[Rfam]
RNA: drz-agam-1 ribozyme
RNA sequence: UGCCCAGCAACUCCUAUCCUUACCUCCUCGUGGUACUGGCCGGGAUCGGGUAACCAACCCUGGUGGGAACUUUGGUCGUAUGCUGACAGGGAAGG
Numbered sequence: 001u002g003c004c005c006a007g008c009a010a011c012u013c014c015u016a017u018c019c020u021u022a023c024c025u026c027c028u029c030g031u032g033g034u035a036c037u038g039g040c041c042g043g044g045a046u047c048g049g050g051u052a053a054c055c056a057a058c059c060c061u062g063g064u065g066g067g068a069a070c071u072u073u074g075g076u077c078g079u080a081u082g083c084u085g086a087c088a089g090g091g092a093a094g095g
Stems, first nucleotide, its partner, number of pairs: 013095003017091004022034003045081002049077003053073001